RNA sequence: AGCUUUGUGUAGUGGCAGUAUCAUAGCCAAUGAGGUUUAUCCAAGGCGUGAUUAUUGCUAAUUUAGAAAUAAUAAUAUAUAGUUUAUUAUUAUUAUUAAACUAUUAUGAUACUGUAACACUGUGCUGG
Numbered sequence: 001a002g003c004u005u006u007g008u009g010u011a012g013u014g015g016c017a018g019u020a021u022c023a024u025a026g027c028c029a030a031u032g033a034g035g036u037u038u039a040u041c042c043a044a045g046g047c048g049u050g051a052u053u054a055u056u057g058c059u060a061a062u063u064u065a066g067a068a069a070u071a072a073u074a075a076u077a078u079a080u081a082g083u084u085u086a087u088u089a090u091u092a093u094u095a096u097u098a099a100a101c102u103a104u105u106a107u108g109a110u111a112c113u114g115u116a117a118c119a120c121u122g123u124g125c126u127g128g
Stems, first nucleotide, its partner, number of pairs: 020052005026047003034042002077107003080103007088095002